tRNA: an 85-nucleotide sequence from Scleromatobacter humisilvae. The family has 954 seed sequences and 5,335,975 matches in Rfam 15.1.
RNA sequence: GCCCCGGUGGUGAAAUUGGUCAGACACUCGGGACUUAAAAUCCCGCGCCUUCACGGGCAUGGCGGUUCGAGUCCGCCCCGGGGCA
Numbered sequence: 001g002c003c004c005c006g007g008u009g010g011u012g013a014a015a016u017u018g019g020u021c022a023g024a025c026a027c028u029c030g031g032g033a034c035u036u037a038a039a040a041u042c043c044c045g046c047g048c049c050u051u052c053a054c055g056g057g058c059a060u061g062g063c064g065g066u067u068c069g070a071g072u073c074c075g076c077c078c079c080g081g082g083g084c085a
Stems, first nucleotide, its partner, number of pairs: 001084007010027003029045005061077005
Description: NCBI's taxonomy places the organism under Bacteria, Pseudomonadati, Burkholderiales, Sphaerotilaceae, Scleromatobacter.